[Rfam]
The record is a 73-nucleotide sequence from Tinamus guttatus, which matches "mir-551 microRNA precursor family" in Rfam. It scores 60 bits against the family's covariance model. The base pairs follow the family's consensus structure, which was predicted with RNAalifold. The family has 29 seed sequences and 1,097 matches in Rfam 15.1. For this family Rfam cites "Conservation of small RNA pathways in platypus" (Murchison et al., Genome Res, 2008). NCBI's taxonomy places the organism under Eukaryota, Opisthokonta, Vertebrata, Coelurosauria, Tinamus.

RNA sequence: UGACCUUGGAAAUCAACUGUGGGUGAACCUGGCGGCACAGCGGUAGGCGACCCGUACUUGGUUUCAAGGGUCA
Numbered sequence: 001u002g003a004c005c006u007u008g009g010a011a012a013u014c015a016a017c018u019g020u021g022g023g024u025g026a027a028c029c030u031g032g033c034g035g036c037a038c039a040g041c042g043g044u045a046g047g048c049g050a051c052c053c054g055u056a057c058u059u060g061g062u063u064u065c066a067a068g069g070g071u072c073a
Base pairs, nucleotide, nucleotide: 002072003071004070005069006068007067009065010064011063012062013061014060016058021053022052023051024050028047029046030045